[Rfam]
RNA sequence: AUCGCUUCUCGGCCUCUUGGGCUCUGAUCGAAAGUGUAGUAUCUGUUCUUAUCAGCUUAAUCUCUGAUAGGGUGUUCACUGAACGCUCCGAGAUUAAUUAGAAUUUUUGCAACCUGGGUCGAGGUCGGAAUUCAUUCCACUCGCCCCGCGGGUCGCUCUGCUACUGCACUGCUGGCAGAAUUGGCCCAUACGAU
Numbered sequence: 001a002u003c004g005c006u007u008c009u010c011g012g013c014c015u016c017u018u019g020g021g022c023u024c025u026g027a028u029c030g031a032a033a034g035u036g037u038a039g040u041a042u043c044u045g046u047u048c049u050u051a052u053c054a055g056c057u058u059a060a061u062c063u064c065u066g067a068u069a070g071g072g073u074g075u076u077c078a079c080u081g082a083a084c085g086c087u088c089c090g091a092g093a094u095u096a097a098u099u100a101g102a103a104u105u106u107u108u109g110c111a112a113c114c115u116g117g118g119u120c121g122a123g124g125u126c127g128g129a130a131u132u133c134a135u136u137c138c139a140c141u142c143g144c145c146c147c148g149c150g151g152g153u154c155g156c157u158c159u160g161c162u163a164c165u166g167c168a169c170u171g172c173u174g175g176c177a178g179a180a181u182u183g184g185c186c187c188a189u190a191c192g193a194u
Stems, first nucleotide, its partner, number of pairs: 007027002011023004050069006071087007116147003120143004127138004150187006157179006
Shown here is a 194-nucleotide RNA sequence from Argiope bruennichi, a member of the family "U2 spliceosomal RNA".
The family's RNA type in Rfam is spliceosomal small nuclear RNA.
Taxonomically the source falls in Argiope (Eukaryota, Eumetazoa, Entelegynae, Araneoidea).
Rfam links the family to the GO terms U2 snRNP, pre-mRNA branch point binding and mRNA branch site recognition.
U2 is a small nuclear RNA (snRNA) component of the spliceosome (involved in pre-mRNA splicing).
It scores 130 bits against the family's covariance model.